[Rfam]
RNA sequence: UUUGCAGGCUUGGGGCCAGAGCAGAAGUGCUCAUGGUGCAGCCCUGUCAUUUUCCAACAAAUCUGUGAAUUCUGUU
Number, nucleotide and partner (000 for none) at each position: 001u000002u000003u000004g000005c000006a000007g000008g000009c000010u000011u000012g000013g044014g043015g042016c041017c000018a000019g000020a076021g075022c074023a073024g072025a071026a070027g039028u038029g037030c000031u000032c000033a000034u000035g000036g000037u029038g028039c027040a000041g016042c015043c014044c013045u000046g000047u000048c065049a064050u000051u000052u061053u060054c000055c000056a000057a000058c000059a000060a053061a052062u000063c000064u049065g048066u000067g000068a000069a000070u026071u025072c024073u023074g022075u021076u020

The record is a 76-nucleotide sequence from Crocodylus porosus, which matches "Mammalian CPEB3 ribozyme" in Rfam.
For this family Rfam cites "A genomewide search for ribozymes reveals an HDV-like sequence in the human CPEB3 gene" (Salehi-Ashtiani et al., Science, 2006).
The source organism's lineage runs through Eukaryota, Opisthokonta, Teleostomi, Longirostres and Crocodylus.
From the family's description: The mammalian CPEB3 ribozyme is a self cleaving RNA located in the second intron of the CPEB3 gene which belongs to a family of genes regulating messenger RNA polyadenylation. This ribozyme is highly conserved and found only in mammals. The CPEB3 ribozyme is structurally and biochemically related to the human hepatitis delta virus (HDV) ribozyme and the HDV ribozyme is proposed to have arisen from the human transcriptome.
Pairs were carried over by alignment from the consensus structure, which is taken from published work.